[Rfam]
RNA sequence: GCGGAGGGCCGGAUGGCCGCGGGGGGCAACCUCCGAGGAAAGUCCGGACUCCGGAAGGCAACGGUGCCGGGUAACGCCCGGGCGGGGAAACCCGACGGAAAGCGCCACAGAGAACAGACCGCCCCGGUCCGCCGGGGUAAGGGUGAAACGGUGGGGUAAGAGCCCACCGCGCCCCUGGCAACAGGGGCGGCACGGCAAGCCCCACCGGGAGCAAUGCCGAAUAGGACCCCCGCGCGGGACAGGUCCCUUCGGGGAUACCGCCGCUAGGCACGCUUUCGCCGAGAGGGGUCGGGUUGGCAGCUAAAGGUGCAUGGCAACAUGCACCGUAGAGGAAUGGUCAUCGAACGGCGGGCAACCGCCGGGAACAGAAUCCGGCUUACAGGCCCUCCGCGCAG
Numbered sequence: 001g002c003g004g005a006g007g008g009c010c011g012g013a014u015g016g017c018c019g020c021g022g023g024g025g026g027c028a029a030c031c032u033c034c035g036a037g038g039a040a041a042g043u044c045c046g047g048a049c050u051c052c053g054g055a056a057g058g059c060a061a062c063g064g065u066g067c068c069g070g071g072u073a074a075c076g077c078c079c080g081g082g083c084g085g086g087g088a089a090a091c092c093c094g095a096c097g098g099a100a101a102g103c104g105c106c107a108c109a110g111a112g113a114a115c116a117g118a119c120c121g122c123c124c125c126g127g128u129c130c131g132c133c134g135g136g137g138u139a140a141g142g143g144u145g146a147a148a149c150g151g152u153g154g155g156g157u158a159a160g161a162g163c164c165c166a167c168c169g170c171g172c173c174c175c176u177g178g179c180a181a182c183a184g185g186g187g188c189g190g191c192a193c194g195g196c197a198a199g200c201c202c203c204a205c206c207g208g209g210a211g212c213a214a215u216g217c218c219g220a221a222u223a224g225g226a227c228c229c230c231c232g233c234g235c236g237g238g239a240c241a242g243g244u245c246c247c248u249u250c251g252g253g254g255a256u257a258c259c260g261c262c263g264c265u266a267g268g269c270a271c272g273c274u275u276u277c278g279c280c281g282a283g284a285g286g287g288g289u290c291g292g293g294u295u296g297g298c299a300g301c302u303a304a305a306g307g308u309g310c311a312u313g314g315c316a317a318c319a320u321g322c323a324c325c326g327u328a329g330a331g332g333a334a335u336g337g338u339c340a341u342c343g344a345a346c347g348g349c350g351g352g353c354a355a356c357c358g359c360c361g362g363g364a365a366c367a368g369a370a371u372c373c374g375g376c377u378u379a380c381a382g383g384c385c386c387u388c389c390g391c392g393c394a395g
Stems, first nucleotide, its partner, number of pairs: 001391010011380001012342007020035006040378003044375005049211004058277001060275001062207005067081005082096001083094004097202002102200002104196003119142002121138007150168006169191001170189008215299004225290006269283001271281002306325008
The family of this 395-nucleotide sequence from Seohaeicola zhoushanensis is "Bacterial RNase P class A". NCBI's taxonomy places the organism under Bacteria, Pseudomonadota, Alphaproteobacteria, Roseobacteraceae, Seohaeicola. Rfam links the family to the GO terms dimeric ribonuclease P complex, tRNA processing and ribonuclease P activity. Ribonuclease P (RNase P) is a ubiquitous endoribonuclease, found in archaea, bacteria and eukarya as well as chloroplasts and mitochondria. Rfam classes the family as a ribozyme.